Overview: This 60-nucleotide sequence from Cohnella zeiphila belongs to the Rfam family "Fluoride riboswitch aptamer (crcB RNA motif)". Lineage of the source: Bacteria > Bacilli > Caryophanales > Paenibacillaceae > Cohnella. On this family, see Baker et al., Science 2012: "Widespread genetic switches and toxicity resistance proteins for fluoride". Rfam links the family to the GO terms positive regulation of gene expression and response to fluoride.

RNA sequence: AGUCGAAUAGGCGAUGGAGUUCGCCAUAACUGCCUUCGGGCUAAUGACUCCUACCAGCGU
Number, nucleotide and partner (000 for none) at each position: 001a000002g000003u000004c000005g000006a000007a000008u000009a000010g025011g024012c023013g022014a000015u000016g051017g050018a049019g048020u047021u046022c013023g012024c011025c010026a000027u000028a000029a000030c000031u000032g041033c040034c039035u000036u000037c000038g000039g034040g033041c032042u000043a000044a000045u000046g021047a020048c019049u018050c017051c016052u000053a000054c000055c000056a000057g000058c000059g000060u000